About this RNA
This 97-nucleotide RNA from Waltiozyma mucosa belongs to the Rfam family "Small nucleolar RNA snR57". The literature on the family includes a 1999 paper in Science by Lowe and Eddy, "A computational screen for methylation guide snoRNAs in yeast". It scores 80 bits against the family's covariance model. By type it is a C/D-box small nucleolar RNA. Lineage of the source: Eukaryota > Fungi > Dikarya > Wickerhamomycetaceae > Waltiozyma. Its family is annotated with RNA processing and nucleolus in the Gene Ontology.
RNA sequence: UUCUAGAUGAUUAUACCAUUUUAUUGGGAAUCUCUCUGAGGAAGUAUAUGCAGGACAAAAUAAAAUUUAGGAAUUCUUCGUUUAUGAUUUCAAAGAA
Numbered sequence: 001u002u003c004u005a006g007a008u009g010a011u012u013a014u015a016c017c018a019u020u021u022u023a024u025u026g027g028g029a030a031u032c033u034c035u036c037u038g039a040g041g042a043a044g045u046a047u048a049u050g051c052a053g054g055a056c057a058a059a060a061u062a063a064a065a066u067u068u069a070g071g072a073a074u075u076c077u078u079c080g081u082u083u084a085u086g087a088u089u090u091c092a093a094a095g096a097a
Stems, first nucleotide, its partner, number of pairs: 001097004